[Rfam]
RNA: Eukaryotic large subunit ribosomal RNA, nucleotides 419 to 896
RNA sequence: GGGUGGGGUUUGUGCACUCCGUCCGGAGGGUUCAACUUGGCGGCUCUAGUCGGUCACGUUGGGGGUCUGGCGGAUCUCCUUUGCUGGGACUGCUCCCCGCGCAGGCAUGGCUGUCGCCGUGCGUAUUUCCUCCACUGGUGGUGCGCCACGACCAGCUUUGGGUCGGCUGGGAAAGCCGGUGACCUUGGAAGGUGGCUCACCGCUCCGUGUUAUAGUUCCCUGGUACCAUCCUUCGCUGUACCCCCGGAGUCGAGAGAAGCGAUCGCUGCCCCGCCCUCCCGCCACCCUCCUCAGGGUGUGCGCGGAACCGCGUGUGGCGAGCGGGCUCGCCGUGCUCCCGGUGGGACUGUUGACCGGGAUGUACUGCCCACAGUGCACCCUAACCGCGUCUGCCACCGAGUCGGACCGUGCCACGCCGAGCUGGCGCCAGAGGUCUGCGGCAAUGUCGGUAACCCACCCUACCCAUCUUGAAACGCGG
Numbered sequence: 001g002g003g004u005g006g007g008g009u010u011u012g013u014g015c016a017c018u019c020c021g022u023c024c025g026g027a028g029g030g031u032u033c034a035a036c037u038u039g040g041c042g043g044c045u046c047u048a049g050u051c052g053g054u055c056a057c058g059u060u061g062g063g064g065g066u067c068u069g070g071c072g073g074a075u076c077u078c079c080u081u082u083g084c085u086g087g088g089a090c091u092g093c094u095c096c097c098c099g100c101g102c103a104g105g106c107a108u109g110g111c112u113g114u115c116g117c118c119g120u121g122c123g124u125a126u127u128u129c130c131u132c133c134a135c136u137g138g139u140g141g142u143g144c145g146c147c148a149c150g151a152c153c154a155g156c157u158u159u160g161g162g163u164c165g166g167c168u169g170g171g172a173a174a175g176c177c178g179g180u181g182a183c184c185u186u187g188g189a190a191g192g193u194g195g196c197u198c199a200c201c202g203c204u205c206c207g208u209g210u211u212a213u214a215g216u217u218c219c220c221u222g223g224u225a226c227c228a229u230c231c232u233u234c235g236c237u238g239u240a241c242c243c244c245c246g247g248a249g250u251c252g253a254g255a256g257a258a259g260c261g262a263u264c265g266c267u268g269c270c271c272c273g274c275c276c277u278c279c280c281g282c283c284a285c286c287c288u289c290c291u292c293a294g295g296g297u298g299u300g301c302g303c304g305g306a307a308c309c310g311c312g313u314g315u316g317g318c319g320a321g322c323g324g325g326c327u328c329g330c331c332g333u334g335c336u337c338c339c340g341g342u343g344g345g346a347c348u349g350u351u352g353a354c355c356g357g358g359a360u361g362u363a364c365u366g367c368c369c370a371c372a373g374u375g376c377a378c379c380c381u382a383a384c385c386g387c388g389u390c391u392g393c394c395a396c397c398g399a400g401u402c403g404g405a406c407c408g409u410g411c412c413a414c415g416c417c418g419a420g421c422u423g424g425c426g427c428c429a430g431a432g433g434u435c436u437g438c439g440g441c442a443a444u445g446u447c448g449g450u451a452a453c454c455c456a457c458c459c460u461a462c463c464c465a466u467c468u469u470g471a472a473a474c475g476c477g478g
Base pairs, nucleotide, nucleotide: 001459002458003457004456005455006454007453009451011449019170020169021168023166024165025164175441176440177439178438181435182434183433184432185431186430463478464477466475